[Rfam]
RNA sequence: ACAAAGGCUCUUUUAAGAGCCACUCACUUAUUCUUAAAAGAUCUG
Numbered sequence: 001a002c003a004a005a006g007g008c009u010c011u012u013u014u015a016a017g018a019g020c021c022a023c024u025c026a027c028u029u030a031u032u033c034u035u036a037a038a039a040g041a042u043c044u045g
Stems, first nucleotide, its partner, number of pairs: 006021006
Background: Histone 3' UTR stem-loop: a 45-nucleotide RNA sequence from Onychostoma macrolepis. It is annotated as a cis-regulatory element. On this family, see Zhang et al., Proc Natl Acad Sci U S A 2014: "Molecular mechanisms for the regulation of histone mRNA stem-loop-binding protein by phosphorylation". Lineage of the source: Eukaryota > Chordata > Euteleostomi > Ostariophysi > Onychostoma. The base pairs follow the family's consensus structure, which is taken from published work. The family has 50 seed sequences and 44,596 matches in Rfam 15.1. A search with the family's covariance model found it, with a score of 43 bits.